[Rfam]
RNA sequence: GGGUUGGUGGUCUAGUCCGGUUAUGACGCCGCCUUCACACGGCGGAGAUCGGCGGUUCAACUCCGCCCCGACCCA
Number, nucleotide and partner (000 for none) at each position: 001g074002g073003g072004u071005u070006g069007g068008u000009g000010g027011u026012c025013u000014a000015g000016u000017c000018c000019g000020g000021u000022u000023a000024u000025g012026a011027c010028g000029c045030c044031g043032c042033c041034u000035u000036c000037a000038c000039a000040c000041g033042g032043c031044g030045g029046a000047g000048a000049u000050c000051g067052g066053c065054g064055g063056u000057u000058c000059a000060a000061c000062u000063c055064c054065g053066c052067c051068c007069c006070g005071a004072c003073c002074c001075a000
Rfam assigns this 75-nucleotide sequence from Halorubrum vacuolatum to the family "tRNA". The family's consensus secondary structure is taken from published work. Lineage of the source: Archaea > Methanobacteriati > Methanobacteriota > Halobacteriales > Halorubrum. It scores 62 bits against the family's covariance model.